[Rfam]
RNA sequence: GUAUUUUCCGGUGAUGGAGUUCACCGUAAAAGCGCGUAAGCGCUAAUGACUCCUGCAGGCUA
Numbered sequence: 001g002u003a004u005u006u007u008c009c010g011g012u013g014a015u016g017g018a019g020u021u022c023a024c025c026g027u028a029a030a031a032g033c034g035c036g037u038a039a040g041c042g043c044u045a046a047u048g049a050c051u052c053c054u055g056c057a058g059g060c061u062a
Stems, first nucleotide, its partner, number of pairs: 010025004016053006032043004
RNA: Fluoride riboswitch aptamer (crcB RNA motif)
Organism: Propionispora vibrioides